[Rfam]
RNA: BsrG
RNA sequence: GUACAACAGAAUCGGCUCCAUGGGGCGGGUCGCUCAUCCUCAUUCCCAAUAGGAAAGGGGGUGAUGCCAUGACAGUAUACGAAGUGUUGUCGUUGAUGGUAACGUUCGGUACACUACUUGUUGCUAUACUGUGCAUUCUUCAACAAAAAGAAGCAGACCCUUCACCUCAUGACUGUGGUCUACUUCUCAGCUGAAAAUGAGCCGACUCCCUUGCAGGGGCGACUGUUGUAUGAUGGCGCGGGUACUGCAACAUCCGCG
Dot-bracket structure: (((((.(((..((((((.(((((((..((((........(((.((((..........)))))))......(((((((.......((..........)).........((((..........)))).)))))).).....................)))).....)))))))..((............))..........)))))).(((.......)))...))).))))).....(((((((........)))))))